Description
This 129-nucleotide sequence from Clostridium sp. USBA 49 belongs to the Rfam family "FMN riboswitch aptamer (RFN element)". Pairs were carried over by alignment from the consensus structure, which is taken from published work. Lineage of the source: Bacteria > Bacillati > Clostridia > Clostridiaceae > Clostridium. A search with the family's covariance model found it, with a score of 106 bits.
Nucleotides: 129
Base pairs, nucleotide, nucleotide: 006124007123008122009121010120017041018040019039043109044108045099046098047060048059049058050057055097056096063075064074065073079095080094081093082092083091101112102111103110
Number, partner (000 for none) and nucleotide at each position: 001000u002000a003000u004000a005000a006124u007123c008122u009121u010120c011000a012000g013000g014000g015000c016000a017041g018040g019039g020000u021000g022000a023000c024000u025000a026000a027000g028000a029000a030000a031000u032000u033000a034000g035000g036000a037000u038000u039019c040018c041017c042000g043109a044108c045099c046098g047060g048059c049058g050057g051000u052000a053000u054000a055097g056096c057050c058049c059048g060047c061000g062000a063075g064074c065073c066000a067000u068000u069000u070000u071000a072000u073065g074064g075063c076000a077000g078000a079095u080094u081093c082092g083091g084000u085000g086000u087000a088000a089000c090000u091083c092082c093081g094080a095079a096056g097055c098046c099045g100000a101112c102111a103110g104000u105000a106000a107000a108044g109043u110103c111102u112101g113000g114000a115000u116000g117000a118000a119000a120010g121009a122008a123007g124006a125000a126000a127000u128000a129000u